[Rfam]
RNA sequence: GAAUUCAGGUAAUCGCUGCAACGUAAGUUGUAGAGGAAAGUCCAUGCUCGCACGGCUCUGAGAAGACCGUAGUGUUUGUGCUCGGCGAAAAAAUAAGCCGUGGCUUCGCGUUAAUCGCGUUGACGGCGGGGAUAAGUCCUACGUUUGCUUUGCAAAUAUGGAUGAGGUCUCCUGAAAAGUGCCACAGUAACGUAGCUUACCCGGAAACGGAUAAGAUGGAACGCGGUAAACCCCACAAGCGAGAAACCCAAAUUAUGGUAGGGGCACUCUUCUGAAGGAAUUGAACGGAUGAAGGGACAGACAUCAUCGUUAGAUGUGUCUGUAGAUAGAUGAUUACCGCCCUAAGUACGAGGCGCAAGCUGUUUGAGUACACGGGAACAAAACAUGGCUUAUCGAA
Number, nucleotide and partner (000 for none) at each position: 001g000002a000003a000004u397005u396006c395007a393008g338009g337010u336011a335012a334013u333014c332015g000016c033017u032018g031019c030020a029021a028022c000023g000024u000025a000026a000027g000028u021029u020030g019031u018032a017033g016034a000035g000036g000037a000038a391039a390040g389041u000042c388043c387044a386045u385046g384047c243048u242049c241050g240051c239052a070053c069054g068055g067056c000057u066058c065059u000060g000061a000062g000063a000064a000065g058066a057067c055068c054069g053070u052071a000072g000073u000074g000075u000076u238077u237078g236079u235080g234081c102082u000083c100084g099085g098086c097087g000088a000089a000090a000091a000092a000093a000094u000095a000096a000097g086098c085099c084100g083101u000102g081103g124104c122105u000106u000107c119108g118109c117110g000111u000112u000113a000114a000115u000116c000117g109118c108119g107120u000121u000122g104123a000124c103125g233126g232127c000128g172129g171130g170131g169132a000133u000134a000135a000136g163137u162138c161139c160140u000141a000142c000143g157144u156145u155146u154147g153148c000149u000150u000151u000152g000153c147154a146155a145156a144157u143158a000159u000160g139161g138162a137163u136164g000165a000166g000167g000168u000169c131170u130171c129172c128173u000174g000175a000176a000177a000178a000179g231180u230181g227182c226183c225184a000185c000186a000187g000188u000189a000190a000191c000192g000193u000194a000195g000196c215197u214198u213199a212200c000201c210202c209203g208204g000205a000206a000207a000208c203209g202210g201211a000212u199213a198214a197215g196216a000217u000218g000219g000220a000221a000222c000223g000224c000225g183226g182227u181228a000229a000230a180231c179232c126233c125234c080235a079236c078237a077238a076239g051240c050241g049242a048243g047244a000245a000246a000247c263248c262249c261250a000251a000252a000253u000254u000255a000256u000257g000258g000259u000260a000261g249262g248263g247264g000265c000266a000267c296268u295269c294270u293271u292272c291273u000274g000275a000276a000277g000278g000279a000280a000281u000282u000283g000284a000285a000286c000287g000288g000289a000290u000291g272292a271293a270294g269295g268296g267297a323298c322299a321300g320301a319302c318303a317304u316305c000306a000307u000308c000309g000310u000311u000312a000313g000314a000315u000316g304317u303318g302319u301320c300321u299322g298323u297324a000325g000326a000327u000328a000329g000330a000331u000332g014333a013334u012335u011336a010337c009338c008339g000340c000341c376342c375343u374344a000345a000346g371347u370348a369349c368350g000351a000352g000353g000354c000355g000356c000357a000358a000359g000360c000361u000362g000363u000364u000365u000366g000367a000368g349369u348370a347371c346372a000373c000374g343375g342376g341377a000378a000379c000380a000381a000382a000383a000384c046385a045386u044387g043388g042389c040390u039391u038392a000393u007394c000395g006396a005397a004
The record is a 397-nucleotide RNA sequence from Sporosarcina luteola, which matches "Bacterial RNase P class B" in Rfam. Clan: RNaseP clan. Rfam's curators write: Ribonuclease P (RNase P) is a ubiquitous endoribonuclease, found in archaea, bacteria and eukarya as well as chloroplasts and mitochondria. Its best characterised activity is the generation of mature 5'-ends of tRNAs by cleaving the 5'-leader elements of precursor-tRNAs. Cellular RNase Ps are ribonucleoproteins. RNA from bacterial RNase Ps retains its catalytic activity in the absence of the protein subunit, i.e. it is a ribozyme.